[Rfam]
Nucleotides: 075
Stems, first nucleotide, its partner, number of pairs: 001075005
Number, partner (000 for none) and nucleotide at each position: 001075g002074u003073u004072u005071g006000g007000g008000u009000g010000a011000u012000g013000a014000c015000u016000u017000c018000a019000c020000a021000a022000u023000u024000u025000g026000u027000c028000g029000g030000a031000u032000a033000c034000c035000c036000c037000u038000u039000c040000a041000c042000u043000c044000a045000u046000c047000u048000a049000u050000g051000a052000g053000u054000g055000a056000g057000a058000g059000c060000a061000g062000c063000a064000a065000g066000u067000c068000u069000g070000a071005c072004a073003a074002a075001c